A member of the RNA family "pan motif" from Clostridium paraputrificum, 84 nucleotides long. The base pairs follow the family's consensus structure, which is taken from published work. The match comes from Rfam's covariance-model search (48 bits).

[Rfam]
RNA sequence: UGGGUGGUAUUUUCAGGAAGCUACACCAGAUUGACAAUUUUUUUAUUUUGUAUAGCUCAUAUCUAUUUAGAAUGGGACUAAUAU
Numbered sequence: 001u002g003g004g005u006g007g008u009a010u011u012u013u014c015a016g017g018a019a020g021c022u023a024c025a026c027c028a029g030a031u032u033g034a035c036a037a038u039u040u041u042u043u044u045a046u047u048u049u050g051u052a053u054a055g056c057u058c059a060u061a062u063c064u065a066u067u068u069a070g071a072a073u074g075g076g077a078c079u080a081a082u083a084u
Stems, first nucleotide, its partner, number of pairs: 001028003004024005010019002053080003056076005062071003